[Rfam]
RNA sequence: UGACGGGGGCCCGCACAAGCGGUGGAGCAUGUGGUUCAAUUCGACGCAACGCGCAGAACCUUACCAGCCCUUGACAUGUGACUCGCCGGCUCCAGAGACGGAGCCUUCGGUUCGGCCGGAGUCAACACAGGUGCUGCAUGGCUGUCGUCAGCUCGUGUCGUGAGAUGUUGGGUUAAGUCCCGCAACGAGCGCAACCCUCGUCUCCAGUUGCCAUCAGGUUAUGCUGGGCACUUUGGAGAAACUGCCGGUGACAAGCCGGAGGAAGGUGGGGAUGACGUCAAGUCCUCAUGGCCCUUACGGGCUGGGCUACACACGUGCUACAAUGGCGGUGACAGUGGGAUGCGAAGGGGCGACCCGGAGCCGAUCCCAAAAAGCCGUCCCAGUUCGGAUUGCACUCUGCAACUCGAGUGCAUGAAGGUGGAAUCGCUAGUAAUCGCGGAUCAGCAUGCCGCGGUGAAUACGUUCCCGGGCCUUGUACACACCGCCCGUCACGCCAUGGGAGUUGGUUCUACCCGAAGAUGGUGCGCUAACCGCAAGGAGGCAGCCAGCCACGGUAGGAUCAAUGACUGGGGCGAAGUCGUAACAAGG
Numbered sequence: 001u002g003a004c005g006g007g008g009g010c011c012c013g014c015a016c017a018a019g020c021g022g023u024g025g026a027g028c029a030u031g032u033g034g035u036u037c038a039a040u041u042c043g044a045c046g047c048a049a050c051g052c053g054c055a056g057a058a059c060c061u062u063a064c065c066a067g068c069c070c071u072u073g074a075c076a077u078g079u080g081a082c083u084c085g086c087c088g089g090c091u092c093c094a095g096a097g098a099c100g101g102a103g104c105c106u107u108c109g110g111u112u113c114g115g116c117c118g119g120a121g122u123c124a125a126c127a128c129a130g131g132u133g134c135u136g137c138a139u140g141g142c143u144g145u146c147g148u149c150a151g152c153u154c155g156u157g158u159c160g161u162g163a164g165a166u167g168u169u170g171g172g173u174u175a176a177g178u179c180c181c182g183c184a185a186c187g188a189g190c191g192c193a194a195c196c197c198u199c200g201u202c203u204c205c206a207g208u209u210g211c212c213a214u215c216a217g218g219u220u221a222u223g224c225u226g227g228g229c230a231c232u233u234u235g236g237a238g239a240a241a242c243u244g245c246c247g248g249u250g251a252c253a254a255g256c257c258g259g260a261g262g263a264a265g266g267u268g269g270g271g272a273u274g275a276c277g278u279c280a281a282g283u284c285c286u287c288a289u290g291g292c293c294c295u296u297a298c299g300g301g302c303u304g305g306g307c308u309a310c311a312c313a314c315g316u317g318c319u320a321c322a323a324u325g326g327c328g329g330u331g332a333c334a335g336u337g338g339g340a341u342g343c344g345a346a347g348g349g350g351c352g353a354c355c356c357g358g359a360g361c362c363g364a365u366c367c368c369a370a371a372a373a374g375c376c377g378u379c380c381c382a383g384u385u386c387g388g389a390u391u392g393c394a395c396u397c398u399g400c401a402a403c404u405c406g407a408g409u410g411c412a413u414g415a416a417g418g419u420g421g422a423a424u425c426g427c428u429a430g431u432a433a434u435c436g437c438g439g440a441u442c443a444g445c446a447u448g449c450c451g452c453g454g455u456g457a458a459u460a461c462g463u464u465c466c467c468g469g470g471c472c473u474u475g476u477a478c479a480c481a482c483c484g485c486c487c488g489u490c491a492c493g494c495c496a497u498g499g500g501a502g503u504u505g506g507u508u509c510u511a512c513c514c515g516a517a518g519a520u521g522g523u524g525c526g527c528u529a530a531c532c533g534c535a536a537g538g539a540g541g542c543a544g545c546c547a548g549c550c551a552c553g554g555u556a557g558g559a560u561c562a563a564u565g566a567c568u569g570g571g572g573c574g575a576a577g578u579c580g581u582a583a584c585a586a587g588g
Base pairs, nucleotide, nucleotide: 001479002478003476004475005474007473008472009471010470011469012468013467015463016462019427020426021425022424023423024321026319027318028317029316030315031314032313033312034310035309040055042053043052064305065304066303067302068301069300070299077127078126079124080123081122082121083120088105089104090103091102092101093100107119108118109117110116130294131293133292134291135290136289139288140287141283142282143281144279146277147276151190152189153188154187155186156185157166158165159164169182170181171180172179196271197270198269199268201239202238203237204236205235206234207233211228212227215226216225217224242262243261245259246258247257248256249255325379326378327377328376329375330374337368338367339366342361343360347356348355349354386417391412392411393410394409395408396407397406433455434454435453436452437451438450439449482587484584487580488579492574493573494572495571497569498568499567502564503563504562505561506560507559508558509557510556511555512554513553518549520547521546522545523544526542527541528540531538532537
Bacterial small subunit ribosomal RNA: a 588-nucleotide part of an RNA from Enhydrobacter aerosaccus. Its Rfam clan is "SSU clan".